[Rfam]
RNA sequence: AAAACAAAUAUUAUUCGCACUCAUAUAAGUUUAGUAAUAAGGACUAAACGUCUCUACCAGUUAACCGUAAAUUGUCUGACUAUGGGUGUUUAUAUUUAAGUU
Numbered sequence: 001a002a003a004a005c006a007a008a009u010a011u012u013a014u015u016c017g018c019a020c021u022c023a024u025a026u027a028a029g030u031u032u033a034g035u036a037a038u039a040a041g042g043a044c045u046a047a048a049c050g051u052c053u054c055u056a057c058c059a060g061u062u063a064a065c066c067g068u069a070a071a072u073u074g075u076c077u078g079a080c081u082a083u084g085g086g087u088g089u090u091u092a093u094a095u096u097u098a099a100g101u102u
Stems, first nucleotide, its partner, number of pairs: 018088008029049007058078003062074003